SAM riboswitch aptamer (S box leader): a 92-nucleotide sequence from Paeniglutamicibacter cryotolerans. NCBI's taxonomy places the organism under Bacteria, Actinomycetota, Actinomycetes, Micrococcales, Paeniglutamicibacter. The literature on the family includes a 1998 paper in Mol Microbiol by Grundy and Henkin, "The S box regulon: a new global transcription termination control system for methionine and cysteine biosynthesis genes in gram-positive bacteria".

RNA sequence: AUACCAUCCCGAGCGGCCGAGAGAUCUGGCUCUAUGACGCCGCAGCAACCACCCCCUCGGGGGACCGGUGCUACCGCCAGGACCGAUGGAGU
Numbered sequence: 001a002u003a004c005c006a007u008c009c010c011g012a013g014c015g016g017c018c019g020a021g022a023g024a025u026c027u028g029g030c031u032c033u034a035u036g037a038c039g040c041c042g043c044a045g046c047a048a049c050c051a052c053c054c055c056c057u058c059g060g061g062g063g064a065c066c067g068g069u070g071c072u073a074c075c076g077c078c079a080g081g082a083c084c085g086a087u088g089g090a091g092u
Stems, first nucleotide, its partner, number of pairs: 001092002004089005013043005021032003026080004044072004049068002052063003076084001